The family of this 171-nucleotide sequence from Kocuria palustris is "c-di-AMP riboswitch aptamer (ydaO/yuaA leader)". This family represents a conserved RNA structure found upstream of the ydaO and yuaA genes in Bacillus subtilis and related genes in other bacteria.
RNA sequence: UCGGCGAAGAUCCCUAAACGGAGCUGGCAGGAACGGGGGACCCACUUCCCGGCUCGCGAGAACACGCGGGCCUUGGGGUGAAGCCGAGGCUGUCCACCCAUUCCGAGCCUCGGCCGGAUCCAUCGGAUCCGCACCCGACAGCUCACCCCGUAGGCACACUGGAGGAAAUAG
Numbered sequence: 001u002c003g004g005c006g007a008a009g010a011u012c013c014c015u016a017a018a019c020g021g022a023g024c025u026g027g028c029a030g031g032a033a034c035g036g037g038g039g040a041c042c043c044a045c046u047u048c049c050c051g052g053c054u055c056g057c058g059a060g061a062a063c064a065c066g067c068g069g070g071c072c073u074u075g076g077g078g079u080g081a082a083g084c085c086g087a088g089g090c091u092g093u094c095c096a097c098c099c100a101u102u103c104c105g106a107g108c109c110u111c112g113g114c115c116g117g118a119u120c121c122a123u124c125g126g127a128u129c130c131g132c133a134c135c136c137g138a139c140a141g142c143u144c145a146c147c148c149c150g151u152a153g154g155c156a157c158a159c160u161g162g163a164g165g166a167a168a169u170a171g
Base pairs, nucleotide, nucleotide: 004155005154011032012031013030033151034150035149036148037147038146043075044074076136077135078134084113085112086111087110088109089108090107091106116130117129118128119127
Dot-bracket structure: ...((.....(((................)))((((((....((.............................))(((.....((((((((..............))))))))..((((.......))))...))).........))))))..))................
The match comes from Rfam's covariance-model search (55 bits).